RNA sequence: UCGCACGUUGCACCCCGGGCUUCUCUGAAAUCACUCAUGAAGAUCAAAGCCCCAAUGCUCGUGCUAGAUCAAGUGUCGUCCAGUGUUGCAGUUCUGAUCUUGAUUUACAAUCUUUCAGUAUUGUGUCAAAGUGACGGCUAUAUCU
Numbered sequence: 001u002c003g004c005a006c007g008u009u010g011c012a013c014c015c016c017g018g019g020c021u022u023c024u025c026u027g028a029a030a031u032c033a034c035u036c037a038u039g040a041a042g043a044u045c046a047a048a049g050c051c052c053c054a055a056u057g058c059u060c061g062u063g064c065u066a067g068a069u070c071a072a073g074u075g076u077c078g079u080c081c082a083g084u085g086u087u088g089c090a091g092u093u094c095u096g097a098u099c100u101u102g103a104u105u106u107a108c109a110a111u112c113u114u115u116c117a118g119u120a121u122u123g124u125g126u127c128a129a130a131g132u133g134a135c136g137g138c139u140a141u142a143u144c145u
Stems, first nucleotide, its partner, number of pairs: 003064005010058002017052005022046001024043003075138006084128002087125006096115002
small nucleolar RNA snoR134: a 145-nucleotide RNA from Asparagus officinalis. Its family is annotated with RNA processing and nucleolus in the Gene Ontology. The literature on the family includes a 2009 paper in Nucleic Acids Res by Chen and Wu, "Mining small RNA sequencing data: a new approach to identify small nucleolar RNAs in Arabidopsis". The family's consensus secondary structure was predicted with RNAalifold. It scores 107 bits against the family's covariance model. The family has 5 seed sequences and 792 matches in Rfam 15.1.